RNA: Glycine riboswitch aptamer
Organism: Pseudoflavonifractor sp. An184
RNA sequence: AGGAAGCGCGCAGGAAAACAGCAGGGCGUCAGCCCGCUUGCCGAAGGAGUAACACUCUCAGGCGUUCCCCUGGAACGAGGACUGUGCGUGGAUG
Numbered sequence: 001a002g003g004a005a006g007c008g009c010g011c012a013g014g015a016a017a018a019c020a021g022c023a024g025g026g027c028g029u030c031a032g033c034c035c036g037c038u039u040g041c042c043g044a045a046g047g048a049g050u051a052a053c054a055c056u057c058u059c060a061g062g063c064g065u066u067c068c069c070c071u072g073g074a075a076c077g078a079g080g081a082c083u084g085u086g087c088g089u090g091g092a093u094g
Stems, first nucleotide, its partner, number of pairs: 006089008020038003040063003043059002047057003